The record is a 105-nucleotide RNA sequence from Romanomermis culicivorax, which matches "mir-46/mir-47/mir-281 microRNA precursor family" in Rfam. A search with the family's covariance model found it, with a score of 57 bits. The family has 57 seed sequences and 307 matches in Rfam 15.1. The family's consensus secondary structure was predicted with RNAalifold. For this family Rfam cites "The small RNA profile during Drosophila melanogaster development" (Aravin et al., Dev Cell, 2003). The organism belongs to Romanomermis, within Eukaryota.
Nucleotides: 105
Base pairs, nucleotide, nucleotide: 015092016091017090018089020087021086022085025081026080027079028078031076032075033074035072036071
Number, partner (000 for none) and nucleotide at each position: 001000g002000g003000a004000a005000c006000g007000u008000g009000a010000c011000u012000g013000u014000c015092a016091a017090g018089a019000g020087a021086g022085c023000u024000u025081u026080c027079u028078a029000g030000u031076g032075a033074c034000a035072g036071u037000u038000u039000g040000a041000g042000c043000a044000g045000c046000g047000u048000g049000u050000a051000c052000a053000a054000a055000u056000u057000a058000c059000a060000c061000a062000g063000g064000a065000a066000a067000g068000u069000c070000u071036a072035c073000u074033g075032u076031c077000a078028u079027g080026g081025a082000g083000u084000u085022g086021c087020u088000c089018u090017c091016u092015u093000c094000a095000c096000a097000g098000c099000u100000u101000u102000u103000c104000c105000c